U7 small nuclear RNA: a 62-nucleotide sequence from Cnephaeus nilssonii. The base pairs follow the family's consensus structure, which was predicted with PFOLD. The source organism's lineage runs through Eukaryota, Vertebrata, Mammalia, Eutheria and Cnephaeus.

[Rfam]
RNA sequence: UACUGCUUACAGCUCCUGUUUGAAUUUGUCUAGUAGGUCUUCGUUUUUACUGGAAGGCUCUC
Numbered sequence: 001u002a003c004u005g006c007u008u009a010c011a012g013c014u015c016c017u018g019u020u021u022g023a024a025u026u027u028g029u030c031u032a033g034u035a036g037g038u039c040u041u042c043g044u045u046u047u048u049a050c051u052g053g054a055a056g057g058c059u060c061u062c
Stems, first nucleotide, its partner, number of pairs: 036059007043050002